[Rfam]
RNA sequence: CCGGCUCCGGCUCACGUGCGCCCUGUCCGAGGGGCCCGCACGACCCGGCGGCC
Numbered sequence: 001c002c003g004g005c006u007c008c009g010g011c012u013c014a015c016g017u018g019c020g021c022c023c024u025g026u027c028c029g030a031g032g033g034g035c036c037c038g039c040a041c042g043a044c045c046c047g048g049c050g051g052c053c
Base pairs, nucleotide, nucleotide: 003053004052005051007048008047009046010045015042016041017040018039019038020037023034
This 53-nucleotide RNA from Quadrisphaera granulorum belongs to the Rfam family "L31-Actinobacteria ribosomal protein leader". Rfam classes the family as a cis-regulatory leader. It scores 39 bits against the family's covariance model. For this family Rfam cites "Discovery of 20 novel ribosomal leader candidates in bacteria and archaea" (Eckert and Weinberg, BMC Microbiol, 2020).